[Rfam]
RNA: Alphaproteobacterial ar15
RNA sequence: AGCUGAUGCGCUGAUGAAUUUUCCAGUGCACUAGCUGUUCCCCUCUGGAGGUUUUUAACCUUCAAACUUACGGCCGCGGAGAAAUCUGGCGGCCUAUUUU
Numbered sequence: 001a002g003c004u005g006a007u008g009c010g011c012u013g014a015u016g017a018a019u020u021u022u023c024c025a026g027u028g029c030a031c032u033a034g035c036u037g038u039u040c041c042c043c044u045c046u047g048g049a050g051g052u053u054u055u056u057a058a059c060c061u062u063c064a065a066a067c068u069u070a071c072g073g074c075c076g077c078g079g080a081g082a083a084a085u086c087u088g089g090c091g092g093c094c095u096a097u098u099u100u
Stems, first nucleotide, its partner, number of pairs: 001036005007030006046064007072094005077088004